[Rfam]
RNA: U4atac minor spliceosomal RNA
RNA sequence: ACCAUCCAUGUCUUGGGGAGCAAAAUGUCCAAUGAUCGUUAAGUGAGGGCAUUGAUGCUGACACCAUUUAAAAUCUAUUUACCAUCCAACAUAUAUAAUAAAAUCGUAUCUUUUAAUAAUUAAUUCAAUA
Numbered sequence: 001a002c003c004a005u006c007c008a009u010g011u012c013u014u015g016g017g018g019a020g021c022a023a024a025a026u027g028u029c030c031a032a033u034g035a036u037c038g039u040u041a042a043g044u045g046a047g048g049g050c051a052u053u054g055a056u057g058c059u060g061a062c063a064c065c066a067u068u069u070a071a072a073a074u075c076u077a078u079u080u081a082c083c084a085u086c087c088a089a090c091a092u093a094u095a096u097a098a099u100a101a102a103a104u105c106g107u108a109u110c111u112u113u114u115a116a117u118a119a120u121u122a123a124u125u126c127a128a129u130a
Base pairs, nucleotide, nucleotide: 005019006018007017009015020058021057022056024053025052026051027050028049029048030047037043084117085116088113089112094108095107096106098104099103